[Rfam]
RNA: Bacteroidete tryptophan peptide leader RNA
Organism: Hyunsoonleella aquatilis
RNA sequence: UUUGACACUCAAUUCAAUUAAUAAUGAAAAAAACAAUAAAUAACGCUUGGUGGUGGUGCUCUCGAAACUAACAUUCGUGAAGUAACACCCUAGUAUAUUUAACACUUAAAAUAUCGAAAAGGCUUGUC
Numbered sequence: 001u002u003u004g005a006c007a008c009u010c011a012a013u014u015c016a017a018u019u020a021a022u023a024a025u026g027a028a029a030a031a032a033a034c035a036a037u038a039a040a041u042a043a044c045g046c047u048u049g050g051u052g053g054u055g056g057u058g059c060u061c062u063c064g065a066a067a068c069u070a071a072c073a074u075u076c077g078u079g080a081a082g083u084a085a086c087a088c089c090c091u092a093g094u095a096u097a098u099u100u101a102a103c104a105c106u107u108a109a110a111a112u113a114u115c116g117a118a119a120a121g122g123c124u125u126g127u128c
Base pairs, nucleotide, nucleotide: 036100038098040096041095042094046093049091050090052088056086057085058083059082060081063077065075066074